[Rfam]
RNA sequence: GUGGAAGGGGCAUGCAGAGGAGCAGGAGAUUCAGUUGGAAGAUGGAGUACACUUCCCCUCUGUCUCCUGUGCUUGCCUCUUCCAUU
Numbered sequence: 001g002u003g004g005a006a007g008g009g010g011c012a013u014g015c016a017g018a019g020g021a022g023c024a025g026g027a028g029a030u031u032c033a034g035u036u037g038g039a040a041g042a043u044g045g046a047g048u049a050c051a052c053u054u055c056c057c058c059u060c061u062g063u064c065u066c067c068u069g070u071g072c073u074u075g076c077c078u079c080u081u082c083c084a085u086u
Stems, first nucleotide, its partner, number of pairs: 001085012014072003018068005024063001

Rfam assigns this 86-nucleotide RNA from Oryza meyeriana to the family "MIR528 microRNA precursor family". The base pairs follow the family's consensus structure, which was predicted with RNAalifold. The family has 7 seed sequences and 41 matches in Rfam 15.1.